[Rfam]
RNA sequence: CCAGAGGGUCGGGCGGCCGCGGCCCGCAUGCGUGCGGGGCGAGGAAAGUCCGGGCUUCACGAAACGACGGUGCCGGAUAACGUCCGGCGGGCCAUGGGGCUUCCCUUCGGGGAAGGGCCAUGGUUCAGGGACAGUGCAACAGAAAGCAGGUCGCCAAAGGCUUCAGGCCCUAAAGCUUCGGCGAGGCGACAGUGAAAGGGUGCGGUAAGAGCGCACCGCGCCCCCGGCAACGGCGGGCGGCUUGGUAAACCCCACCGGAAGCAAGACCGAAUAGGGACGGCAUUGCCUGUCUUCGGGCAGGCAGGGGCGGUUUCGGCCCCGAUCGUCCGGGUUGGUCGCUUGAGGCCGGAAGCAAUUCCGGCCCUAGAGGAAUGGUCGCCCAUCCGCCGGCGCGUCCCCCCUGGGGAUACGGUUGGUGGUGGACAGAACCCGGCUUACAGACCCUCUGGCACG
Numbered sequence: 001c002c003a004g005a006g007g008g009u010c011g012g013g014c015g016g017c018c019g020c021g022g023c024c025c026g027c028a029u030g031c032g033u034g035c036g037g038g039g040c041g042a043g044g045a046a047a048g049u050c051c052g053g054g055c056u057u058c059a060c061g062a063a064a065c066g067a068c069g070g071u072g073c074c075g076g077a078u079a080a081c082g083u084c085c086g087g088c089g090g091g092c093c094a095u096g097g098g099g100c101u102u103c104c105c106u107u108c109g110g111g112g113a114a115g116g117g118c119c120a121u122g123g124u125u126c127a128g129g130g131a132c133a134g135u136g137c138a139a140c141a142g143a144a145a146g147c148a149g150g151u152c153g154c155c156a157a158a159g160g161c162u163u164c165a166g167g168c169c170c171u172a173a174a175g176c177u178u179c180g181g182c183g184a185g186g187c188g189a190c191a192g193u194g195a196a197a198g199g200g201u202g203c204g205g206u207a208a209g210a211g212c213g214c215a216c217c218g219c220g221c222c223c224c225c226g227g228c229a230a231c232g233g234c235g236g237g238c239g240g241c242u243u244g245g246u247a248a249a250c251c252c253c254a255c256c257g258g259a260a261g262c263a264a265g266a267c268c269g270a271a272u273a274g275g276g277a278c279g280g281c282a283u284u285g286c287c288u289g290u291c292u293u294c295g296g297g298c299a300g301g302c303a304g305g306g307g308c309g310g311u312u313u314c315g316g317c318c319c320c321g322a323u324c325g326u327c328c329g330g331g332u333u334g335g336u337c338g339c340u341u342g343a344g345g346c347c348g349g350a351a352g353c354a355a356u357u358c359c360g361g362c363c364c365u366a367g368a369g370g371a372a373u374g375g376u377c378g379c380c381c382a383u384c385c386g387c388c389g390g391c392g393c394g395u396c397c398c399c400c401c402u403g404g405g406g407a408u409a410c411g412g413u414u415g416g417u418g419g420u421g422g423a424c425a426g427a428a429c430c431c432g433g434c435u436u437a438c439a440g441a442c443c444c445u446c447u448g449g450c451a452c453g
Base pairs, nucleotide, nucleotide: 001449002448003447004446005445006444007443008442009441010440011438012380013379014378015377016376017375018374020041021040023038024037025036026035027034028033046436047435048434050433051432052431053430054429055261056260057259058258063313064312068257069256070255071254072253073087074086075085076084077083088128089126090125091124092123093122094121095120096119097118129252130251134250135249136246137245151191153187154186155185160182161181199217200216201215202214203213204212218241219239220238221237222236223235224233225232226231265337266336267335268334275328276327277326278325279324280323304320305319306318307317308316344363345362346361347360348359349358350357351356